[Rfam]
RNA sequence: CGCACUGAAUGGUAUCUGCACUCAAUGGCUUUAUCCUAUUGUGGUGUUCAAUAAUCAGUGCAAGAUUAAAUCAGUAAGUGGCAUCGUUGGUUUCAAGCCUUUUUGUGUUUGAAGACCUGGUUUUAUGCUGAUACAAAG
Dot-bracket structure: .((((((......((..(((((.(((((.......)))))..)))))......))))))))...((.(((((((......(((....................)))..........)))).)))))............